This 102-nucleotide RNA from Paucibacter sp. KBW04 belongs to the Rfam family "TPP riboswitch aptamer (THI element)". The source organism's lineage runs through Bacteria, Pseudomonadota, Betaproteobacteria, Sphaerotilaceae and Roseateles. The match comes from Rfam's covariance-model search (63 bits).
RNA sequence: UUUCUUCGCUAGGGGUGCUGGCUCAUCAAAUGAGCCGGCUGAGAUAGUCCCUUUGAACCUGAUUGAGUUAAUCCUCGCGCAGGGAAGCCAGCUCGCAUGCGG
Number, nucleotide and partner (000 for none) at each position: 001u000002u000003u000004c000005u000006u090007c000008g088009c087010u086011a052012g051013g050014g049015g000016u046017g039018c038019u037020g036021g035022c034023u033024c032025a031026u000027c000028a000029a000030a000031u025032g024033a023034g022035c021036c020037g019038g018039c017040u000041g000042a000043g000044a000045u000046a016047g000048u000049c014050c013051c012052u011053u000054u000055g000056a000057a000058c083059c082060u081061g080062a000063u000064u077065g076066a075067g074068u000069u000070a000071a000072u000073c000074c067075u066076c065077g064078c000079g000080c061081a060082g059083g058084g000085a000086a010087g009088c008089c000090a006091g000092c000093u000094c000095g000096c000097a000098u000099g000100c000101g000102g000